About this RNA:
A member of the RNA family "Aggregatibacter sRNA 22" from Mannheimia varigena, 99 nucleotides long. On this family, see Oogai et al., DNA Res 2017: "Small RNA repertoires and their intraspecies variation in Aggregatibacter actinomycetemcomitans". A search with the family's covariance model found it, with a score of 82 bits. Taxonomically the source falls in Mannheimia varigena (Bacteria, Pseudomonadati, Gammaproteobacteria, Pasteurellales).
RNA sequence: AAGCUGUCACAAAAAGCAUCGCUUUUGAACGUUGGCUUUGCCAACGGCAGCGAAGCUGUGAACAAUCCUUACAAAGGAUUGUGAAUAAUUUUCUAACAA
Numbered sequence: 001a002a003g004c005u006g007u008c009a010c011a012a013a014a015a016g017c018a019u020c021g022c023u024u025u026u027g028a029a030c031g032u033u034g035g036c037u038u039u040g041c042c043a044a045c046g047g048c049a050g051c052g053a054a055g056c057u058g059u060g061a062a063c064a065a066u067c068c069u070u071a072c073a074a075a076g077g078a079u080u081g082u083g084a085a086u087a088a089u090u091u092u093c094u095a096a097c098a099a
Base pairs, nucleotide, nucleotide: 010027011026012025013024015023016022017021030046031045032044033043034042035041036040047059048058049057050056051055062082063081064080065079066078067077068076069075070074086095087094